The record is a 97-nucleotide RNA from Halorientalis sp. IM1011, which matches "L4-Archaeoglobi ribosomal protein leades" in Rfam.
Lineage of the source: Archaea > Methanobacteriati > Methanobacteriota > Halobacteriales > Halorientalis.
A reference for the family is Eckert and Weinberg (2020), "Discovery of 20 novel ribosomal leader candidates in bacteria and archaea", BMC Microbiol.
The family's consensus secondary structure is taken from published work.

RNA sequence: CUGACGGACGCGUUCGGGUCAAUUGCGGACUGCAACACCCGAUCUCCCUCCCCGAGCCCGACGGCGGGCUGGCGGAGGGGGAGCGCGUAUCCAUCAG
Numbered sequence: 001c002u003g004a005c006g007g008a009c010g011c012g013u014u015c016g017g018g019u020c021a022a023u024u025g026c027g028g029a030c031u032g033c034a035a036c037a038c039c040c041g042a043u044c045u046c047c048c049u050c051c052c053c054g055a056g057c058c059c060g061a062c063g064g065c066g067g068g069c070u071g072g073c074g075g076a077g078g079g080g081g082a083g084c085g086c087g088u089a090u091c092c093a094u095c096a097g
Stems, first nucleotide, its partner, number of pairs: 001097004008088006015041004023035005043082009053072001